[Rfam]
RNA sequence: GGCCUCCUGGUACUUAUCACAGGCUGUGUUCUUACACUGACUGUAUAAGACAAGGAGACAAAGUAAAUCUACCCCAAAUAUGCCUCAUCCCAGGCCCUAUGACUGUUCUGUAUUGUGAAUGGAAAGACACGG
Numbered sequence: 001g002g003c004c005u006c007c008u009g010g011u012a013c014u015u016a017u018c019a020c021a022g023g024c025u026g027u028g029u030u031c032u033u034a035c036a037c038u039g040a041c042u043g044u045a046u047a048a049g050a051c052a053a054g055g056a057g058a059c060a061a062a063g064u065a066a067a068u069c070u071a072c073c074c075c076a077a078a079u080a081u082g083c084c085u086c087a088u089c090c091c092a093g094g095c096c097c098u099a100u101g102a103c104u105g106u107u108c109u110g111u112a113u114u115g116u117g118a119a120u121g122g123a124a125a126g127a128c129a130c131g132g
Stems, first nucleotide, its partner, number of pairs: 002059001004057005020043003026037004074122003086110002091105003095101001

The family of this 132-nucleotide sequence from Castor canadensis is "Small nucleolar RNA SNORA51". The base pairs follow the family's consensus structure, which was predicted with PFOLD. ACA51 is a member of the H/ACA class of snoRNA that guide the sites of modification of uridines to pseudouridines. It scores 110 bits against the family's covariance model. Rfam classes the family as an H/ACA-box small nucleolar RNA.